The record is a 94-nucleotide RNA from Ictidomys tridecemlineatus, which matches "Small nucleolar RNA SNORD116" in Rfam. Rfam 15.1 lists 3,260 matches to the family in 170 species. It is annotated as a C/D-box small nucleolar RNA. A reference for the family is Cavaille et al. (2000), "Identification of brain-specific and imprinted small nucleolar RNA genes exhibiting an unusual genomic organization", Proc Natl Acad Sci U S A.
RNA sequence: GGAUCGAUGAUGAGUCCUCCAAUAACAUUCCUUGGAAAAGCUGAACAAAAUGAGUGAAAACCCACUACCGUCUCGCUCAUCGUGACUGAGGUCC
Numbered sequence: 001g002g003a004u005c006g007a008u009g010a011u012g013a014g015u016c017c018u019c020c021a022a023u024a025a026c027a028u029u030c031c032u033u034g035g036a037a038a039a040g041c042u043g044a045a046c047a048a049a050a051u052g053a054g055u056g057a058a059a060a061c062c063c064a065c066u067a068c069c070g071u072c073u074c075g076c077u078c079a080u081c082g083u084g085a086c087u088g089a090g091g092u093c094c
Stems, first nucleotide, its partner, number of pairs: 001094005026056005032048003